[Rfam]
A member of the RNA family "tRNA" from Trichoderma harzianum, 80 nucleotides long. A search with the family's covariance model found it, with a score of 52 bits. Rfam classes the family as a transfer RNA.
RNA sequence: GGCCGUGUGGCUCAAUGGCAGAGCGUCUGACUACGAUUAAGUAAAUCAGGAGGUUGCAGGUUCGACCCCUGUCUCGGUCA
Numbered sequence: 001g002g003c004c005g006u007g008u009g010g011c012u013c014a015a016u017g018g019c020a021g022a023g024c025g026u027c028u029g030a031c032u033a034c035g036a037u038u039a040a041g042u043a044a045a046u047c048a049g050g051a052g053g054u055u056g057c058a059g060g061u062u063c064g065a066c067c068c069c070u071g072u073c074u075c076g077g078u079c080a
Stems, first nucleotide, its partner, number of pairs: 001079005007073001010024004026050005056072005